[Rfam]
RNA sequence: ACCGCUAAGCCAUCUCUCCAGCCCAUCCAGCAAUUAUCUUUUAAAAAAUAUAUUUUGGGCUGGAGAGAUGGCUUAGUGGU
Number, nucleotide and partner (000 for none) at each position: 001a000002c079003c078004g077005c076006u075007a074008a073009g072010c071011c070012a069013u068014c067015u066016c065017u064018c063019c062020a061021g060022c059023c058024c057025a000026u000027c000028c000029a000030g000031c000032a000033a000034u000035u000036a000037u000038c000039u000040u000041u000042u000043a000044a000045a000046a000047a000048a000049u000050a000051u000052a000053u000054u000055u000056u000057g024058g023059g022060c021061u020062g019063g018064a017065g016066a015067g014068a013069u012070g011071g010072c009073u008074u007075a006076g005077u004078g003079g002080u000
Shown here is an 80-nucleotide RNA sequence from Jaculus jaculus, a member of the family "mir-3473 microRNA precursor family". The source organism's lineage runs through Eukaryota, Boreoeutheria, Euarchontoglires, Dipodoidea and Jaculus. Its family is annotated with miRNA-mediated post-transcriptional gene silencing, cellular response to mechanical stimulus and RISC complex in the Gene Ontology.